[Rfam]
RNA sequence: AAGAAAGUGACUGCCGCCCCGCACAGGGGCGAAGCUAAUAAACCAAUAGCAAUGCAAGUUUCAUAGAAGCCGAAGCGCAUCAAACGGUUCAAAAAACACCCAGCCCAAG
Numbered sequence: 001a002a003g004a005a006a007g008u009g010a011c012u013g014c015c016g017c018c019c020c021g022c023a024c025a026g027g028g029g030c031g032a033a034g035c036u037a038a039u040a041a042a043c044c045a046a047u048a049g050c051a052a053u054g055c056a057a058g059u060u061u062c063a064u065a066g067a068a069g070c071c072g073a074a075g076c077g078c079a080u081c082a083a084a085c086g087g088u089u090c091a092a093a094a095a096a097c098a099c100c101c102a103g104c105c106c107a108a109g
Stems, first nucleotide, its partner, number of pairs: 012079003015031006058071001061069001104109001
A member of the RNA family "Burkholderia sRNA Bp1_Cand684_SIPHT" from Caballeronia glathei, 109 nucleotides long.
It scores 50 bits against the family's covariance model.
Lineage of the source: Bacteria > Pseudomonadati > Pseudomonadota > Betaproteobacteria > Caballeronia.